[Rfam]
Rfam assigns this 133-nucleotide sequence from Castor canadensis to the family "Small nucleolar RNA SNORA42/SNORA80 family". The family has 21 seed sequences and 1,535 matches in Rfam 15.1.
RNA sequence: GCAUGAGUUGGAUUAUUAGCAGCCCUAUCCCCCUGGGUCUCUCAUAGUGUCACAUGCCAGAAUAAGCUGUGGCUCCAAACUGUUGCAUGGCCUCUGCCUGUAGGUUGCUGGCUCUGAAGUGAGUUGCACAAUG
Numbered sequence: 001g002c003a004u005g006a007g008u009u010g011g012a013u014u015a016u017u018a019g020c021a022g023c024c025c026u027a028u029c030c031c032c033c034u035g036g037g038u039c040u041c042u043c044a045u046a047g048u049g050u051c052a053c054a055u056g057c058c059a060g061a062a063u064a065a066g067c068u069g070u071g072g073c074u075c076c077a078a079a080c081u082g083u084u085g086c087a088u089g090g091c092c093u094c095u096g097c098c099u100g101u102a103g104g105u106u107g108c109u110g111g112c113u114c115u116g117a118a119g120u121g122a123g124u125u126g127c128a129c130a131a132u133g
Base pairs, nucleotide, nucleotide: 001057002056003055004054005051006050014047017044019042021040022039024036025035070126071125072124073123074122075121081116082115086111088107089106090105091104092103093102
About this RNA: It is annotated as an H/ACA-box small nucleolar RNA. Rfam describes the family as follows. The members of this family belong to the H/ACA class of snoRNAs that guide the sites of modification of uridines to pseudouridines. Human ACA42 (SNORA42) was cloned from HeLa cells by immunoprecipitation with anti-GAR1 antibody. Its is predicted to guide the pseudouridylation of residues U109 and U572 of 18S rRNA. ACA42 shares the same host gene with ACA26, ACA46, ACA50. This family also includes mammalian snoRNA ACA67 (SNORA80) which was identified by computational screening and its expression in mouse experimentally verified by Northern blot and primer extension analysis. Its family is annotated with nucleolus and RNA processing in the Gene Ontology.